[Rfam]
Annotation
A member of the RNA family "Gut-1 RNA", 78 nucleotides long. By type it is a small RNA. Rfam's curators put it in the seed alignment. The family's consensus secondary structure is taken from published work.
RNA sequence: CAACGAAAUAAAUCCCUUCGGAAUUUGUGAAAUUGCCCUUCGGGCAGUGAAAUGUUGCUGCGCAACGUGAAAUACCUG
Numbered sequence: 001c002a003a004c005g006a007a008a009u010a011a012a013u014c015c016c017u018u019c020g021g022a023a024u025u026u027g028u029g030a031a032a033u034u035g036c037c038c039u040u041c042g043g044g045c046a047g048u049g050a051a052a053u054g055u056u057g058c059u060g061c062g063c064a065a066c067g068u069g070a071a072a073u074a075c076c077u078g
Stems, first nucleotide, its partner, number of pairs: 008028006015021001032048006052068007